[Rfam]
RNA sequence: GGAAGCGUGUGUCUCUGACACAUCUGAACAUCGAUCGCUCUUACCCAGCCGAUCUGCUCUGAUGAUGUCGACCGAACACAGUCGGUGCUCCCGUUGCGCCCUUGGGUCGCACGGUCGAGCUCCGCCCGUUCCAAAUUAGGCUGCUUUCUGCGGCUUCCUGGGUGUACAAUCGGCACUUUCUCCUGUAGGUUACUAAAGUGGGGAGGGUAGCUACGUACAAACCUGCGCUUCCAUGUGCUGGCACUGCUCGAGGCAGUCUGCCAUAUGUUUUC
Numbered sequence: 001g002g003a004a005g006c007g008u009g010u011g012u013c014u015c016u017g018a019c020a021c022a023u024c025u026g027a028a029c030a031u032c033g034a035u036c037g038c039u040c041u042u043a044c045c046c047a048g049c050c051g052a053u054c055u056g057c058u059c060u061g062a063u064g065a066u067g068u069c070g071a072c073c074g075a076a077c078a079c080a081g082u083c084g085g086u087g088c089u090c091c092c093g094u095u096g097c098g099c100c101c102u103u104g105g106g107u108c109g110c111a112c113g114g115u116c117g118a119g120c121u122c123c124g125c126c127c128g129u130u131c132c133a134a135a136u137u138a139g140g141c142u143g144c145u146u147u148c149u150g151c152g153g154c155u156u157c158c159u160g161g162g163u164g165u166a167c168a169a170u171c172g173g174c175a176c177u178u179u180c181u182c183c184u185g186u187a188g189g190u191u192a193c194u195a196a197a198g199u200g201g202g203g204a205g206g207g208u209a210g211c212u213a214c215g216u217a218c219a220a221a222c223c224u225g226c227g228c229u230u231c232c233a234u235g236u237g238c239u240g241g242c243a244c245u246g247c248u249c250g251a252g253g254c255a256g257u258c259u260g261c262c263a264u265a266u267g268u269u270u271u272c
Base pairs, nucleotide, nucleotide: 001232002231003230004229005228006227007226008225016070024061026059029056030055033054034053035052036051037049038048039047240262241261242260243257244256245255246254247253
A member of the RNA family "Arthropod 7SK RNA" from Ixodes scapularis, 272 nucleotides long.
Rfam classes the family as a non-coding RNA gene.
Rfam 15.1 lists 229 matches to the family in 137 species.
It scores 57 bits against the family's covariance model.